Nucleotides: 082
Stems, first nucleotide, its partner, number of pairs: 001082003005076002008073001
Number, partner (000 for none) and nucleotide at each position: 001082g002081g003080g004000u005076c006075a007000a008073u009000c010000a011000u012000g013000u014000g015000u016000a017000c018000u019000u020000u021000a022000u023000a024000u025000u026000g027000c028000c029000u030000u031000g032000a033000g034000g035000a036000g037000c038000g039000g040000u041000a042000a043000u044000a045000a046000c047000u048000u049000a050000a051000g052000u053000a054000u055000c056000a057000u058000g059000u060000a061000c062000a063000a064000u065000g066000g067000c068000a069000u070000g071000a072000c073008a074000c075006u076005g077000a078000g079000u080003c081002c082001c